Rfam assigns this 155-nucleotide sequence from Populus trichocarpa to the family "U12 minor spliceosomal RNA".
RNA sequence: UUGCCUUAAACUAAUGAGUAAGGAAAACAAAGCGAGAGGUGGGAGCCGCUCGCCGCGCCGACACAGUUUGUGCGCAUUAAUUUGUGGAGGGGUUAUAGGCUGGCCGAGCGUUGACGCUGCUUACUUUGCAGAACUCGCUUGCGCGGGCCUCCCUA
Numbered sequence: 001u002u003g004c005c006u007u008a009a010a011c012u013a014a015u016g017a018g019u020a021a022g023g024a025a026a027a028c029a030a031a032g033c034g035a036g037a038g039g040u041g042g043g044a045g046c047c048g049c050u051c052g053c054c055g056c057g058c059c060g061a062c063a064c065a066g067u068u069u070g071u072g073c074g075c076a077u078u079a080a081u082u083u084g085u086g087g088a089g090g091g092g093u094u095a096u097a098g099g100c101u102g103g104c105c106g107a108g109c110g111u112u113g114a115c116g117c118u119g120c121u122u123a124c125u126u127u128g129c130a131g132a133a134c135u136c137g138c139u140u141g142c143g144c145g146g147g148c149c150u151c152c153c154u155a
Stems, first nucleotide, its partner, number of pairs: 004023005032053005038047002054074005090154003097150005103144001105141002108138003117131004
Pairs were carried over by alignment from the consensus structure. It is one of the family's seed sequences.